[Rfam]
Nucleotides: 133
Stems, first nucleotide, its partner, number of pairs: 002057008014046008023038004068130005074124002085116005090110001092108003
Number, partner (000 for none) and nucleotide at each position: 001000a002057c003056c004055u005054g006053c007052a008051u009050u010000c011000g012000a013000a014046a015045g016044u017043g018042a019041u020040c021039a022000a023038g024037g025036u026035c027000u028000g029000g030000u031000g032000u033000g034000u035026g036025g037024c038023c039021u040020g041019g042018u043017c044016a045015u046014u047000g048000a049000u050009a051008g052007u053006g054005c055004a056003g057002g058000g059000a060000g061000a062000g063000g064000a065000a066000u067000u068130c069129u070128g071127a072126a073000a074124g075123c076000g077000u078000u079000u080000c081000c082000c083000g084000u085116g086115u087114u088113u089112g090110g091000u092108g093107g094106g095000u096000u097000u098000g099000c100000u101000c102000c103000u104000g105000u106094c107093c108092c109000u110090c111000c112089c113088a114087a115086a116085c117000c118000c119000u120000g121000u122000a123075g124074c125000a126072u127071u128070c129069g130068g131000a132000c133000a
Shown here is a 133-nucleotide RNA sequence from Cairina moschata, a member of the family "Small nucleolar RNA SNORA71". Gene Ontology terms of the family: nucleolus and RNA processing. The members of this family belong to the H/ACA class of snoRNAs which bind a number of proteins (including dyskerin, Gar1p and Nop10p) to form snoRNP complexes. This class of snoRNAs are thought to guide the sites of modification of uridines to pseudouridines by forming direct base pairing interactions with substrate RNAs. This family includes U71 (SNORA71), ACA39 (SNORA39) and ACA60 (SNORA60). U71 and ACA60 are predicted to guide the pseudouridylation of U406 and U1004 in 18S rRNA respectively. There is currently no target RNA identified for ACA39. The base pairs follow the family's consensus structure, which was predicted with PFOLD.